RNA sequence: AACCCGAUACAGGACUGGCGGAUUAGUGGGUUGAACCACGUGGACUGUAGCGGAGAUGAAAGCCGACCGCCUGGGCAUUGCAU
Numbered sequence: 001a002a003c004c005c006g007a008u009a010c011a012g013g014a015c016u017g018g019c020g021g022a023u024u025a026g027u028g029g030g031u032u033g034a035a036c037c038a039c040g041u042g043g044a045c046u047g048u049a050g051c052g053g054a055g056a057u058g059a060a061a062g063c064c065g066a067c068c069g070c071c072u073g074g075g076c077a078u079u080g081c082a083u
Stems, first nucleotide, its partner, number of pairs: 004053003008049005015042001017071005026039004060078001062076003